[Rfam]
Nucleotides: 108
Base pairs, nucleotide, nucleotide: 006107007106008105009104011023012022013021014020025102026101027100028099030097034093035092036091037090040068041067042066043065044064045063069082070081071080
Number, partner (000 for none) and nucleotide at each position: 001000g002000a003000c004000c005000g006107c007106g008105g009104u010000g011023u012022g013021u014020c015000a016000a017000c018000c019000g020014g021013a022012c023011a024000c025102g026101a027100u028099g029000g030097g031000g032000a033000u034093g035092g036091u037090g038000a039000a040068c041067g042066c043065a044064g045063g046000a047000g048000u049000u050000u051000u052000u053000c054000c055000g056000g057000u058000u059000u060000c061000u062000g063045c064044c065043u066042g067041c068040g069082g070081c071080c072000a073000a074000c075000g076000a077000a078000a079000c080071g081070g082069c083000a084000g085000c086000c087000g088000a089000g090037c091036g092035c093034c094000c095000g096000a097030c098000a099028c100027g101026u102025c103000c104009g105008c106007c107006g108000c
A member of the RNA family "Rhizobiales sRNA Atu_At1" from Rhizobium sp. Leaf371, 108 nucleotides long. Rfam classes the family as a small RNA. A search with the family's covariance model found it, with a score of 101 bits. A reference for the family is Wilms et al. (2012), "Deep sequencing uncovers numerous small RNAs on all four replicons of the plant pathogen Agrobacterium tumefaciens", RNA Biol. Pairs were carried over by alignment from the consensus structure, which was predicted with CMfinder.